[Rfam]
RNA sequence: AGCGAGGCUAGAGUCACAUCUGGACACUGUACUAUUGCCUUGGUGUGCUUGAGUGCUCGCAGAGUAAAUGUCUUUGCUUAUUCAUUGGCUGUAGUCUAAUGUGGCCCAGUCAAUCACCGGCUCAGACACAGUA
Number, nucleotide and partner (000 for none) at each position: 001a000002g060003c059004g058005a057006g056007g054008c053009u052010a000011g000012a049013g048014u000015c047016a046017c045018a044019u043020c042021u000022g000023g039024a000025c037026a036027c000028u000029g000030u000031a000032c000033u000034a000035u000036u026037g025038c000039c023040u000041u000042g020043g019044u018045g017046u016047g015048c013049u012050u000051g000052a009053g008054u007055g000056c006057u005058c004059g003060c002061a000062g000063a000064g000065u000066a000067a000068a000069u000070g000071u000072c125073u124074u000075u000076g121077c120078u119079u000080a000081u000082u000083c000084a114085u113086u112087g111088g110089c000090u108091g107092u000093a000094g000095u103096c000097u000098a000099a000100u000101g000102u000103g095104g000105c000106c000107c091108a090109g000110u088111c087112a086113a085114u084115c000116a000117c000118c000119g078120g077121c076122u000123c000124a073125g072126a000127c000128a000129c000130a000131g000132u000133a000
RNA: Small nucleolar RNA SNORA3/SNORA45 family
Organism: Sphaeramia orbicularis